[Rfam]
RNA: Small nucleolar RNA SNORD46
RNA sequence: AAUUGGAGUGAUGAAAUGUAUCACCUUAGGUAGAUACAACAGACCGUUUUGGUCCUUUACAGUAUCUACCAGUGCUGGGUUUUGUCAUAGUUACACUGACCGGAU
Numbered sequence: 001a002a003u004u005g006g007a008g009u010g011a012u013g014a015a016a017u018g019u020a021u022c023a024c025c026u027u028a029g030g031u032a033g034a035u036a037c038a039a040c041a042g043a044c045c046g047u048u049u050u051g052g053u054c055c056u057u058u059a060c061a062g063u064a065u066c067u068a069c070c071a072g073u074g075c076u077g078g079g080u081u082u083u084g085u086c087a088u089a090g091u092u093a094c095a096c097u098g099a100c101c102g103g104a105u
Stems, first nucleotide, its partner, number of pairs: 001105001003103004